[Rfam]
RNA sequence: AGAGGUCACAAAUUUGAGGACAUAACAGAAGUGCUCACAGCACGGUCCUGUCAAAUUACAACAAAUCUGGGAAUUCUGCU
Number, nucleotide and partner (000 for none) at each position: 001a000002g000003a000004g000005g000006u000007c000008a000009c000010a000011a000012a000013u000014u000015u000016g048017a000018g047019g046020a000021c044022a000023u000024a080025a000026c078027a077028g076029a075030a074031g043032u042033g041034c000035u000036c000037a000038c000039a000040g000041c033042a032043c031044g021045g000046u019047c018048c016049u000050g000051u000052c069053a068054a000055a066056u065057u064058a000059c000060a000061a000062c000063a000064a057065a056066u055067c000068u053069g052070g000071g000072a000073a000074u030075u029076c028077u027078g026079c000080u024

The record is an 80-nucleotide RNA from Alligator sinensis, which matches "Mammalian CPEB3 ribozyme" in Rfam. It scores 37 bits against the family's covariance model. NCBI's taxonomy places the organism under Eukaryota, Euteleostomi, Dipnotetrapodomorpha, Archosauria, Alligator.